RNA sequence: UUAGCUUCUUUAGAUAGUGUUUGUAGUCAUGAGUUUCAUGGAUACAAACACGUUAAACGUUACGUUUGUAUCUAUGAGGCUAAGGACUUUUUGAGUUGUUUGUCCACAUAGAUAAAAAUAUCUAAGUGGACGCUACCAUACAGCAAGAGUUCAGUGUAUUUUCACCUACCUCUCUAUAUGUGUCAGACCAUUUAGAUAUUCUAA
Numbered sequence: 001u002u003a004g005c006u007u008c009u010u011u012a013g014a015u016a017g018u019g020u021u022u023g024u025a026g027u028c029a030u031g032a033g034u035u036u037c038a039u040g041g042a043u044a045c046a047a048a049c050a051c052g053u054u055a056a057a058c059g060u061u062a063c064g065u066u067u068g069u070a071u072c073u074a075u076g077a078g079g080c081u082a083a084g085g086a087c088u089u090u091u092u093g094a095g096u097u098g099u100u101u102g103u104c105c106a107c108a109u110a111g112a113u114a115a116a117a118a119u120a121u122c123u124a125a126g127u128g129g130a131c132g133c134u135a136c137c138a139u140a141c142a143g144c145a146a147g148a149g150u151u152c153a154g155u156g157u158a159u160u161u162u163c164a165c166c167u168a169c170c171u172c173u174c175u176a177u178a179u180g181u182g183u184c185a186g187a188c189c190a191u192u193u194a195g196a197u198a199u200u201c202u203a204a
Stems, first nucleotide, its partner, number of pairs: 001083006011074006019049007027041004054068005089149004096142001102131006109124003152180002156177003